Shown here is a 61-nucleotide RNA from Clethra delavayi, a member of the family "Plastid-psbA-4 3UTR RNA". Rfam classes the family as a cis-regulatory element.

[Rfam]
Nucleotides: 061
Base pairs, nucleotide, nucleotide: 006058007057008056009055010054011053012052013051014050015049016048017047024041025040026039027038028037029036
Number, partner (000 for none) and nucleotide at each position: 001000a002000a003000a004000g005000u006058a007057a008056g009055g010054g011053a012052g013051u014050a015049a016048u017047a018000a019000c020000c021000a022000a023000u024041u025040u026039c027038u028037u029036g030000u031000u032000c033000u034000a035000u036029c037028a038027a039026g040025a041024g042000c043000g044000c045000a046000u047017u048016a049015u050014u051013g052012c053011u054010c055009c056008c057007u058006u059000a060000c061000u

Source information: The organism belongs to Clethra, within Eukaryota.